[Rfam]
RNA sequence: AUUAUACGACAAACCUUGUUCGGUUUUGCAAAUUUCCUAGCAGCACUGGGUAAAGUUUGUCCUAUAAU
Number, nucleotide and partner (000 for none) at each position: 001a000002u000003u000004a000005u064006a063007c000008g061009a060010c059011a058012a057013a056014c055015c000016u000017u052018g051019u050020u000021c048022g047023g046024u045025u000026u000027u000028g000029c000030a000031a000032a000033u000034u000035u000036c000037c000038u000039a000040g000041c000042a000043g000044c000045a024046c023047u022048g021049g000050g019051u018052a017053a000054a000055g014056u013057u012058u011059g010060u009061c008062c000063u006064a005065u000066a000067a000068u000

Shown here is a 68-nucleotide RNA sequence from Drosophila rhopaloa, a member of the family "mir-3 microRNA precursor family". Its Rfam clan is "mir-3 clan". A reference for the family is Aravin et al. (2003), "The small RNA profile during Drosophila melanogaster development", Dev Cell.